[Rfam]
RNA sequence: UCAUCAAAGGCUGGAGAGCGCUGGGUGCAGGGAAUCUUUUCUGCACUGCAGCCGCCGAAGGGGCAAGUCGCAUGGCCAGCAGGGCGGUGCGAUGAAUCUCUCAGGCAAAAGGACGGCUCGGGAAGG
Numbered sequence: 001u002c003a004u005c006a007a008a009g010g011c012u013g014g015a016g017a018g019c020g021c022u023g024g025g026u027g028c029a030g031g032g033a034a035u036c037u038u039u040u041c042u043g044c045a046c047u048g049c050a051g052c053c054g055c056c057g058a059a060g061g062g063g064c065a066a067g068u069c070g071c072a073u074g075g076c077c078a079g080c081a082g083g084g085c086g087g088u089g090c091g092a093u094g095a096a097u098c099u100c101u102c103a104g105g106c107a108a109a110a111g112g113a114c115g116g117c118u119c120g121g122g123a124a125g126g
Stems, first nucleotide, its partner, number of pairs: 009118005020052004054106003057102002061100003067093007
The family of this 126-nucleotide RNA from Lampropedia cohaerens is "Glycine riboswitch aptamer". Rfam describes the family as follows. This family represents the bacterial glycine riboswitch. The match comes from Rfam's covariance-model search (59 bits). The source organism's lineage runs through Bacteria, Pseudomonadota, Burkholderiales, Comamonadaceae and Lampropedia.